[Rfam]
RNA sequence: CCUGGCGCUGAAGCUCCAGGCUAUUUUCAGUCGUCCCUAAUGGGACU
Numbered sequence: 001c002c003u004g005g006c007g008c009u010g011a012a013g014c015u016c017c018a019g020g021c022u023a024u025u026u027u028c029a030g031u032c033g034u035c036c037c038u039a040a041u042g043g044g045a046c047u
Stems, first nucleotide, its partner, number of pairs: 001020005007014002033046005
Dot-bracket structure: (((((.((....)).)))))............(((((....))))).
RNA: Acido-Lenti-1 RNA